[Rfam]
Notes
Rfam assigns this 87-nucleotide RNA from Sporomusa ovata to the family "c-di-GMP-I riboswitch aptamer". Lineage of the source: Bacteria > Bacillati > Selenomonadales > Sporomusaceae > Sporomusa. Rfam links the family to the GO term cyclic-di-GMP binding. Pairs were carried over by alignment from the consensus structure, which is taken from published work.
RNA sequence: AUAAAUAUUUGGCAAACCUUCUGAAAGGAAGAGACGCAAAGCCAUGGAUCUAAGGAUUUAAUAGUCUAUGACAGCCAGGUUGCAAUA
Numbered sequence: 001a002u003a004a005a006u007a008u009u010u011g012g013c014a015a016a017c018c019u020u021c022u023g024a025a026a027g028g029a030a031g032a033g034a035c036g037c038a039a040a041g042c043c044a045u046g047g048a049u050c051u052a053a054g055g056a057u058u059u060a061a062u063a064g065u066c067u068a069u070g071a072c073a074g075c076c077a078g079g080u081u082g083c084a085a086u087a
Stems, first nucleotide, its partner, number of pairs: 012037002018031005040081004045077003049071002055066004